[Rfam]
A member of the RNA family "tRNA" from Anaerobacterium chartisolvens, 73 nucleotides long. By type it is a transfer RNA. Lineage of the source: Bacteria > Bacillati > Clostridia > Oscillospiraceae > Anaerobacterium. A reference for the family is Lowe and Eddy (1997), "tRNAscan-SE: a program for improved detection of transfer RNA genes in genomic sequence", Nucleic Acids Res. The family's consensus secondary structure is taken from published work.
Nucleotides: 073
Base pairs, nucleotide, nucleotide: 001072002071003070004069005068006067007066010025011024012023013022027043028042029041030040031039049065050064052062053061
Number, partner (000 for none) and nucleotide at each position: 001072g002071c003070u004069g005068g006067u007066g008000u009000a010025g011024c012023u013022c014000a015000g016000c017000a018000g019000g020000u021000a022013g023012a024011g025010c026000a027043a028042u029041u030040g031039a032000c033000u034000u035000g036000u037000a038000a039031u040030c041029a042028a043027u044000a045000g046000g047000u048000c049065g050064g051000g052062g053061g054000u055000u056000c057000g058000a059000u060000u061053c062052c063000g064050u065049c066007c067006a068005c069004c070003a071002g072001c073000u